Annotation:
The family of this 85-nucleotide RNA from Legionella antarctica is "t44 RNA". By type it is a small RNA. The literature on the family includes a 2002 paper in Nucleic Acids Res by Tjaden et al., "Transcriptome analysis of Escherichia coli using high-density oligonucleotide probe arrays". Rfam describes the family as follows. This family consists of a number of bacterial RNA genes of between 135 and 170 bases in length. The t44 gene has been identified in several species of enteric bacteria but homologs have also been identified in Pseudomonas and Coxiella species. The t44 gene is found between the map and rpsB genes in all species in the full alignment apart from Shigella flexneri. The function of this RNA is unknown.

[Rfam]
RNA sequence: AAUAACGCGCUUUAAAUACACACACGUUUCGUCACAUACGAUAGGGUCCCUUGUGGGUUUCGUAUGGGAAGCGUGGAGGCUUAAC
Numbered sequence: 001a002a003u004a005a006c007g008c009g010c011u012u013u014a015a016a017u018a019c020a021c022a023c024a025c026g027u028u029u030c031g032u033c034a035c036a037u038a039c040g041a042u043a044g045g046g047u048c049c050c051u052u053g054u055g056g057g058u059u060u061c062g063u064a065u066g067g068g069a070a071g072c073g074u075g076g077a078g079g080c081u082u083a084a085c
Base pairs, nucleotide, nucleotide: 023075024074025073026072027071028070029069030068035066036065037064038063039062040061041060043058048057049056050055